permuted transfer-messenger RNA: a 219-nucleotide RNA sequence from Azospirillum sp. B510.
RNA sequence: GGCGAUAAACGCCUUGUGGAAUAAGCGUUGUGGACCCGGGGGCGGUACCCGGCGCCUCCACCAACCAAACACCGGACUCGUUGACCGGGGUCGUUGGGGGCGAAACAGGAUCGACACGCGUGGUAAAGGCAUGGUUUUCGCUCGGCAUGGUUCCGCCGUUAUCGGGCCGUUGCAAUAGUUGCCAACGACAACGUUGCUCAGGCUCGCCUCGCUGCCUAA
Numbered sequence: 001g002g003c004g005a006u007a008a009a010c011g012c013c014u015u016g017u018g019g020a021a022u023a024a025g026c027g028u029u030g031u032g033g034a035c036c037c038g039g040g041g042g043c044g045g046u047a048c049c050c051g052g053c054g055c056c057u058c059c060a061c062c063a064a065c066c067a068a069a070c071a072c073c074g075g076a077c078u079c080g081u082u083g084a085c086c087g088g089g090g091u092c093g094u095u096g097g098g099g100g101c102g103a104a105a106c107a108g109g110a111u112c113g114a115c116a117c118g119c120g121u122g123g124u125a126a127a128g129g130c131a132u133g134g135u136u137u138u139c140g141c142u143c144g145g146c147a148u149g150g151u152u153c154c155g156c157c158g159u160u161a162u163c164g165g166g167c168c169g170u171u172g173c174a175a176u177a178g179u180u181g182c183c184a185a186c187g188a189c190a191a192c193g194u195u196g197c198u199c200a201g202g203c204u205c206g207c208c209u210c211g212c213u214g215c216c217u218a219a
Base pairs, nucleotide, nucleotide: 001142002141003140004139005138015131016130017129026120027119028118030117031116032115036052037051038050039049040048053102054101055100056099057098058097059096143158144157145156146155
Bacterial tmRNA, also known as 10Sa RNA or SsrA, is named for its dual tRNA and mRNA-like properties. Its role is to liberate the mRNA from a stalled ribosome. The base pairs follow the family's consensus structure, which is taken from published work. The family's RNA type in Rfam is non-coding RNA gene. It scores 150 bits against the family's covariance model.